[Rfam]
The record is a 113-nucleotide RNA from Macaca fascicularis, which matches "Y RNA" in Rfam.
The family's consensus secondary structure is taken from published work.
By type it is a non-coding RNA gene.
From the family's description: Y RNAs are components of the Ro ribonucleoprotein particle (Ro RNP), in association with Ro60 and La proteins. The Y RNAs and Ro60 and La proteins are well conserved, but the function of the Ro RNP is not known. In humans the RNA component can be one of four small RNAs -- hY1, hY3, hY4 and hY5. These small RNAs are predicted to fold into a conserved secondary structure containing three stem structures.

RNA sequence: AGCUGGCCUGAAGGCAGUGAGCUAUCUCAAAUGAGGGUUCACAACCAGCUACAGACUGAACUCCUUGCUCUAUUCUCUACCCCGUUCUCACUACUUCACUGAACUAGUUUUAA
Numbered sequence: 001a002g003c004u005g006g007c008c009u010g011a012a013g014g015c016a017g018u019g020a021g022c023u024a025u026c027u028c029a030a031a032u033g034a035g036g037g038u039u040c041a042c043a044a045c046c047a048g049c050u051a052c053a054g055a056c057u058g059a060a061c062u063c064c065u066u067g068c069u070c071u072a073u074u075c076u077c078u079a080c081c082c083c084g085u086u087c088u089c090a091c092u093a094c095u096u097c098a099c100u101g102a103a104c105u106a107g108u109u110u111u112a113a
Stems, first nucleotide, its partner, number of pairs: 001109006011100001014097001016092006044074001047071002